RNase MRP: a 253-nucleotide RNA from Perca flavescens. The source organism's lineage runs through Eukaryota, Teleostomi, Clupeocephala, Acanthomorphata and Perca. The family's RNA type in Rfam is ribozyme. The base pairs follow the family's consensus structure, which is taken from published work. Gene Ontology terms of the family: ribonuclease MRP activity, rRNA processing and ribonuclease MRP complex.
[Rfam]
RNA sequence: GGGCAUUCAGAAGGCUUGCAAUCUGGGCUACAUGCGGAGGACCUAGUUUCUCACUACCGCCCAGGGGAAAGUCCCCGGACUCGUGGCAGAAAGUGUCUCUGGUUGAAACCAGUGUCGGCUCACGCUACACCGUUCGUAAGCAGAGACGUUCUCUGAACAGAGCUUGGUGAUCGUGGGCCGACUUUGUCAGCGUUGAUAGUAAUGCAAGCAGUUACAAACGCGGAAACAGAACGGGGCUCAUUCUCGGAAUGCA
Numbered sequence: 001g002g003g004c005a006u007u008c009a010g011a012a013g014g015c016u017u018g019c020a021a022u023c024u025g026g027g028c029u030a031c032a033u034g035c036g037g038a039g040g041a042c043c044u045a046g047u048u049u050c051u052c053a054c055u056a057c058c059g060c061c062c063a064g065g066g067g068a069a070a071g072u073c074c075c076c077g078g079a080c081u082c083g084u085g086g087c088a089g090a091a092a093g094u095g096u097c098u099c100u101g102g103u104u105g106a107a108a109c110c111a112g113u114g115u116c117g118g119c120u121c122a123c124g125c126u127a128c129a130c131c132g133u134u135c136g137u138a139a140g141c142a143g144a145g146a147c148g149u150u151c152u153c154u155g156a157a158c159a160g161a162g163c164u165u166g167g168u169g170a171u172c173g174u175g176g177g178c179c180g181a182c183u184u185u186g187u188c189a190g191c192g193u194u195g196a197u198a199g200u201a202a203u204g205c206a207a208g209c210a211g212u213u214a215c216a217a218a219c220g221c222g223g224a225a226a227c228a229g230a231a232c233g234g235g236g237c238u239c240a241u242u243c244u245c246g247g248a249a250u251g252c253a
Stems, first nucleotide, its partner, number of pairs: 003252006010245002014209006022065007037052005070238002073236004085097004099112005115181009128169003138165004148158004